[Rfam]
RNA sequence: UGAGGCAACUCUGGAAAGAGCAGGUCACCGUCGUCCGUGACCCGCCGCCGAAGGAGAAAGGCACCCUCGAAAGCACACCAGCGUGGUCAUGCUGAAGCUCUCAGGCACCCUCGACAGAGUGGGGAGG
Numbered sequence: 001u002g003a004g005g006c007a008a009c010u011c012u013g014g015a016a017a018g019a020g021c022a023g024g025u026c027a028c029c030g031u032c033g034u035c036c037g038u039g040a041c042c043c044g045c046c047g048c049c050g051a052a053g054g055a056g057a058a059a060g061g062c063a064c065c066c067u068c069g070a071a072a073g074c075a076c077a078c079c080a081g082c083g084u085g086g087u088c089a090u091g092c093u094g095a096a097g098c099u100c101u102c103a104g105g106c107a108c109c110c111u112c113g114a115c116a117g118a119g120u121g122g123g124g125a126g127g
Stems, first nucleotide, its partner, number of pairs: 006122001008120006020045002023042006047106003050102002054100003060093004
RNA: Glycine riboswitch aptamer